[Rfam]
RNA sequence: GCUGGCAUGAUGAUGAAAUCUUUGCCGUUUACCCAUCUGACUGGUUCUUGAUGAGUACCUUUGAAUCUGAGAUGCCAGU
Numbered sequence: 001g002c003u004g005g006c007a008u009g010a011u012g013a014u015g016a017a018a019u020c021u022u023u024g025c026c027g028u029u030u031a032c033c034c035a036u037c038u039g040a041c042u043g044g045u046u047c048u049u050g051a052u053g054a055g056u057a058c059c060u061u062u063g064a065a066u067c068u069g070a071g072a073u074g075c076c077a078g079u
Base pairs, nucleotide, nucleotide: 001079002078003077004076005075006074007073
RNA: Small nucleolar RNA SNORD87
Organism: Semnornis frantzii